[Rfam]
RNA sequence: CCUUCACCGACCCAACGCGGUCGGUCUCCGUUGCGGG
Numbered sequence: 001c002c003u004u005c006a007c008c009g010a011c012c013c014a015a016c017g018c019g020g021u022c023g024g025u026c027u028c029c030g031u032u033g034c035g036g037g
Stems, first nucleotide, its partner, number of pairs: 006025005011019001013017001